[Rfam]
RNA sequence: GGAUACCUGAGGUGUACGAGAGCCGCCUUCGUUAUUUUGAGCCAACACUUUGAAUACGGGAGACCGAACUGCCAUCCAGAUCAACUGCCUCAUCACGUGCAGGAGGACUUGUGAAGGGGACGCUAGGUCACCCACCUGCUUAAGCAGGUUCAAAAGCAGGGCAUCGUCACGGCACUCCGGGUCCCAU
Numbered sequence: 001g002g003a004u005a006c007c008u009g010a011g012g013u014g015u016a017c018g019a020g021a022g023c024c025g026c027c028u029u030c031g032u033u034a035u036u037u038u039g040a041g042c043c044a045a046c047a048c049u050u051u052g053a054a055u056a057c058g059g060g061a062g063a064c065c066g067a068a069c070u071g072c073c074a075u076c077c078a079g080a081u082c083a084a085c086u087g088c089c090u091c092a093u094c095a096c097g098u099g100c101a102g103g104a105g106g107a108c109u110u111g112u113g114a115a116g117g118g119g120a121c122g123c124u125a126g127g128u129c130a131c132c133c134a135c136c137u138g139c140u141u142a143a144g145c146a147g148g149u150u151c152a153a154a155a156g157c158a159g160g161g162c163a164u165c166g167u168c169a170c171g172g173c174a175c176u177c178c179g180g181g182u183c184c185c186a187u
Stems, first nucleotide, its partner, number of pairs: 002185001005182005011176005017171002035155002038152006058133003062129004067124001071121001073119001075118003083110002088106004
Rfam assigns this 187-nucleotide RNA sequence from Exiguobacterium chiriqhucha to the family "6S / SsrS RNA". For this family Rfam cites "A highly conserved 6S RNA structure is required for regulation of transcription" (Trotochaud and Wassarman, Nat Struct Mol Biol, 2005). It is annotated as a non-coding RNA gene. Rfam's curators write: E. coli 6S RNA was the first non coding RNA to be sequenced, but its function was unknown until recently. It consists of 184 nucleotides that fold into an extended hairpin structure with a large single-stranded internal bulge. The 6S RNA specifically associates with RNA polymerase holoenzyme containing the sigma70 specificity factor. The family's consensus secondary structure is taken from published work. It scores 79 bits against the family's covariance model.